mir-3492 microRNA precursor family: a 78-nucleotide RNA from Schistosoma haematobium.
RNA sequence: AGCUUUUCGAAUCCAUGCAGAGAUUUCGUCAGACACUAACCCACUAAGGCUGAUCAGACUUUUAAUAUAAAUGAAGUU
Dot-bracket structure: .(((((....((...((.((((.(((.(((.....................))).)))))))))..))....))))).
Pairs were carried over by alignment from the consensus structure, which was predicted with RNAalifold. The family has 2 seed sequences and 21,496 matches in Rfam 15.1.